[Rfam]
RNA sequence: GUUGGUCUGUGAUGUAUGUAUUACCUACAUUGUAUGAGCAGUAUUCAGUGAUGUGAAAGGAUUACUGAGAUCAAC
Numbered sequence: 001g002u003u004g005g006u007c008u009g010u011g012a013u014g015u016a017u018g019u020a021u022u023a024c025c026u027a028c029a030u031u032g033u034a035u036g037a038g039c040a041g042u043a044u045u046c047a048g049u050g051a052u053g054u055g056a057a058a059g060g061a062u063u064a065c066u067g068a069g070a071u072c073a074a075c
Stems, first nucleotide, its partner, number of pairs: 001075002004072004

Shown here is a 75-nucleotide RNA from Lingula anatina, a member of the family "Small nucleolar RNA SNORD34". snoRNA U34 is found in intron 5 of the ribosomal protein L13a gene in humans. Rfam 15.1 lists 1,319 matches to the family in 583 species. Gene Ontology terms of the family: RNA processing and nucleolus.